Shown here is a 168-nucleotide RNA sequence from Mesobacillus zeae, a member of the family "glmS glucosamine-6-phosphate activated ribozyme aptamer". Taxonomically the source falls in Mesobacillus (Bacteria, Bacilli, Caryophanales, Bacillaceae).

RNA sequence: CAGAUUAAAAAAGCGCCAGGACUGAUCCGGAACGAAGGCGGGUUAGUUGACGAGGUGGAGGUUUAUCGAGGGUUCGGCGGAUGCCUCCCGGCUGAAGUGCACAGCCGUGAAUCCUUUCUUUAAAACACCAGGGCAACCUGAUGAACAAAGGGAAGGGAAUGCCAAAGG
Number, nucleotide and partner (000 for none) at each position: 001c000002a000003g000004a000005u000006u000007a000008a000009a000010a000011a000012a000013g000014c000015g000016c000017c000018a000019g000020g048021a047022c046023u045024g044025a043026u042027c041028c000029g039030g000031a000032a000033c000034g000035a000036a000037g000038g000039c029040g000041g027042g026043u025044u024045a023046g022047u021048u020049g000050a000051c000052g000053a000054g000055g000056u000057g088058g087059a086060g085061g084062u000063u000064u000065a000066u077067c076068g075069a074070g000071g000072g000073u000074u069075c068076g067077g066078c000079g000080g000081a000082u000083g000084c061085c060086u059087c058088c057089c107090g106091g105092c104093u103094g102095a000096a000097g000098u000099g000100c000101a000102c094103a093104g092105c091106c090107g089108u000109g000110a000111a000112u158113c157114c156115u155116u154117u153118c152119u000120u000121u000122a000123a000124a000125a000126c143127a142128c000129c140130a139131g138132g137133g000134c000135a000136a000137c132138c131139u130140g129141a000142u127143g126144a000145a000146c000147a000148a000149a000150g000151g000152g118153a117154a116155g115156g114157g113158a112159a000160u000161g000162c000163c000164a000165a000166a000167g000168g000
It scores 128 bits against the family's covariance model.